Rfam assigns this 140-nucleotide RNA from Turnix velox to the family "Small nucleolar RNA SNORA47". Rfam classes the family as an H/ACA-box small nucleolar RNA.
RNA sequence: UGGAGGACUGAGAAGGUAAGACAGUUAAACUUUAUGCUGUUAUCUUACUGGUUAUAACCUCCAAAAUCAUAACGGUGCAAUGGCAACACAUGUUCCCCUCUGGACAUGAGGGAAAGCAGUAUUGCAUUUGCAUACAAUAC
Numbered sequence: 001u002g003g004a005g006g007a008c009u010g011a012g013a014a015g016g017u018a019a020g021a022c023a024g025u026u027a028a029a030c031u032u033u034a035u036g037c038u039g040u041u042a043u044c045u046u047a048c049u050g051g052u053u054a055u056a057a058c059c060u061c062c063a064a065a066a067u068c069a070u071a072a073c074g075g076u077g078c079a080a081u082g083g084c085a086a087c088a089c090a091u092g093u094u095c096c097c098c099u100c101u102g103g104a105c106a107u108g109a110g111g112g113a114a115a116g117c118a119g120u121a122u123u124g125c126a127u128u129u130g131c132a133u134a135c136a137a138u139a140c
Base pairs, nucleotide, nucleotide: 002062003061004060005059006058015049016048017047018046019043020041021040022039023038024037025036083131084130088127091124092123098119099118100116101115105112

The organism belongs to Turnix, within Eukaryota.
Gene Ontology terms of the family: nucleolus and RNA processing.